Small nucleolar RNA SNORA1: a 132-nucleotide RNA sequence from Terrapene triunguis. The match comes from Rfam's covariance-model search (105 bits). Rfam 15.1 lists 1,282 matches to the family in 515 species.
RNA sequence: UGCCUCGUUACACACCAAGAAUAGGCACAAUUAACUGUGUCUGAAUUGAGCAACGUGGCUACAGAAGUAACAGGUUGUGCUUCCAUCACUGUAAAAUGAAUUACAGUGGUGACAAUGAGACCUGUAACAAAC
Numbered sequence: 001u002g003c004c005u006c007g008u009u010a011c012a013c014a015c016c017a018a019g020a021a022u023a024g025g026c027a028c029a030a031u032u033a034a035c036u037g038u039g040u041c042u043g044a045a046u047u048g049a050g051c052a053a054c055g056u057g058g059c060u061a062c063a064g065a066a067g068u069a070a071c072a073g074g075u076u077g078u079g080c081u082u083c084c085a086u087c088a089c090u091g092u093a094a095a096a097u098g099a100a101u102u103a104c105a106g107u108g109g110u111g112a113c114a115a116u117g118a119g120a121c122c123u124g125u126a127a128c129a130a131a132c
Stems, first nucleotide, its partner, number of pairs: 002059003006055003022043007070125005084111006